SAM riboswitch aptamer (S box leader): a 91-nucleotide RNA from Hymenobacter actinosclerus.
A search with the family's covariance model found it, with a score of 72 bits.
Gene Ontology term of the family: regulation of gene expression.
Rfam's curators write: The SAM riboswitch is found upstream of a number of genes which code for proteins involved in methionine or cysteine biosynthesis in Gram-positive bacteria.
The organism belongs to Hymenobacter, within Bacteria.
The base pairs follow the family's consensus structure, which is taken from published work.

RNA sequence: UUUUUAUACAGAGGCGCUGAGAGACAGGCUCGAAGAAGCGUCGGCAACCACCCGUAAACCGGAACGGUGCCAAUUCCUGACCAUAUAAAAA
Numbered sequence: 001u002u003u004u005u006a007u008a009c010a011g012a013g014g015c016g017c018u019g020a021g022a023g024a025c026a027g028g029c030u031c032g033a034a035g036a037a038g039c040g041u042c043g044g045c046a047a048c049c050a051c052c053c054g055u056a057a058a059c060c061g062g063a064a065c066g067g068u069g070c071c072a073a074u075u076c077c078u079g080a081c082c083a084u085a086u087a088a089a090a091a
Stems, first nucleotide, its partner, number of pairs: 001091008013042005021031003025079004043071004048067002051062002075083001